[Rfam]
RNA sequence: AGAGGUUGCAAGUUUGUGGCCAUAGUAGAAGUGUUCAUGGCUUGUCCUGUCAGAUUCCAAUGAAUCUACAAAUUCUGCU
Numbered sequence: 001a002g003a004g005g006u007u008g009c010a011a012g013u014u015u016g017u018g019g020c021c022a023u024a025g026u027a028g029a030a031g032u033g034u035u036c037a038u039g040g041c042u043u044g045u046c047c048u049g050u051c052a053g054a055u056u057c058c059a060a061u062g063a064a065u066c067u068a069c070a071a072a073u074u075c076u077g078c079u
Stems, first nucleotide, its partner, number of pairs: 018047002021044001024079007031043001033041001052067006
A member of the RNA family "Mammalian CPEB3 ribozyme" from Crocodylus porosus, 79 nucleotides long.
NCBI's taxonomy places the organism under Eukaryota, Metazoa, Deuterostomia, Crocodylia, Crocodylus.
The match comes from Rfam's covariance-model search (41 bits).
Rfam's curators write: The mammalian CPEB3 ribozyme is a self cleaving RNA located in the second intron of the CPEB3 gene which belongs to a family of genes regulating messenger RNA polyadenylation.